[Rfam]
RNA sequence: GCCGCCUUGGAGAUAGCCACUGUGAGGUUACCGACGGACGCUUAGUUGUCCAUUUCUGCCUUGCGGGAAGGUCUGAGACAAGCAGCACCUAACUCUCGUGAUGAGAGGCUCUGCUAACAAGAGUGCAGGUUAACAGAAACGGCUCUGAUAAUUGCACCGCAUACCCGGUGAUUGAGGGUUUCCUUAGGAGGGGGAGGUGUGAUUGUCGGAUUGAGAAUGCCUGUGCUGAGCGCGUAUAGCGAGAUUGGCUGGUGUAACUCAAUUCAGACUACUACCAAGGCGGC
Numbered sequence: 001g002c003c004g005c006c007u008u009g010g011a012g013a014u015a016g017c018c019a020c021u022g023u024g025a026g027g028u029u030a031c032c033g034a035c036g037g038a039c040g041c042u043u044a045g046u047u048g049u050c051c052a053u054u055u056c057u058g059c060c061u062u063g064c065g066g067g068a069a070g071g072u073c074u075g076a077g078a079c080a081a082g083c084a085g086c087a088c089c090u091a092a093c094u095c096u097c098g099u100g101a102u103g104a105g106a107g108g109c110u111c112u113g114c115u116a117a118c119a120a121g122a123g124u125g126c127a128g129g130u131u132a133a134c135a136g137a138a139a140c141g142g143c144u145c146u147g148a149u150a151a152u153u154g155c156a157c158c159g160c161a162u163a164c165c166c167g168g169u170g171a172u173u174g175a176g177g178g179u180u181u182c183c184u185u186a187g188g189a190g191g192g193g194g195a196g197g198u199g200u201g202a203u204u205g206u207c208g209g210a211u212u213g214a215g216a217a218u219g220c221c222u223g224u225g226c227u228g229a230g231c232g233c234g235u236a237u238a239g240c241g242a243g244a245u246u247g248g249c250u251g252g253u254g255u256a257a258c259u260c261a262a263u264u265c266a267g268a269c270u271a272c273u274a275c276c277a278a279g280g281c282g283g284c
Stems, first nucleotide, its partner, number of pairs: 001284004008277003014251006022064005036051005073267005083228004093107005108124005125224006144209002
A member of the RNA family "Nuclear RNase P" from Trichobilharzia regenti, 284 nucleotides long. The family's RNA type in Rfam is ribozyme. Rfam's curators write: Ribonuclease P (RNase P) is a ubiquitous endoribonuclease, found in archaea, bacteria and eukarya as well as chloroplasts and mitochondria.